A member of the RNA family "SAM riboswitch aptamer (S box leader)" from Savagea serpentis, 106 nucleotides long. The organism belongs to Savagea, within Bacteria. The family's consensus secondary structure is taken from published work. Rfam links the family to the GO term regulation of gene expression. The family has 457 seed sequences and 9,625 matches in Rfam 15.1.

RNA sequence: UACUUAUCAAGAGCGACCGAGGGAUAGGCCCGAUGACGUCCAGCAACCCCUAAUUUAUUUAGGAAGGUGCCAACUCCUACAGAAUAUUUAUUCUGAAAGAUAAGCG
Numbered sequence: 001u002a003c004u005u006a007u008c009a010a011g012a013g014c015g016a017c018c019g020a021g022g023g024a025u026a027g028g029c030c031c032g033a034u035g036a037c038g039u040c041c042a043g044c045a046a047c048c049c050c051u052a053a054u055u056u057a058u059u060u061a062g063g064a065a066g067g068u069g070c071c072a073a074c075u076c077c078u079a080c081a082g083a084a085u086a087u088u089u090a091u092u093c094u095g096a097a098a099g100a101u102a103a104g105c106g
Stems, first nucleotide, its partner, number of pairs: 001106001003104006013041001015040003021031003025079004043070003047067002049063004075098001080095006